This 92-nucleotide sequence from Oceanicella actignis belongs to the Rfam family "Rhodo-rpoB RNA".

[Rfam]
RNA sequence: GAUCCGGGAGCGACGGCGGUGGGACGCCGACGCAGCAUGGGAUCCGCAAACCUGAGGCGGAGCUUCGCGGCCGUUCCCCGGCGGCGCGCGGG
Dot-bracket structure: (((((....(((.(((((......))))).)))......)))))...................(((((.((((........))))..)))))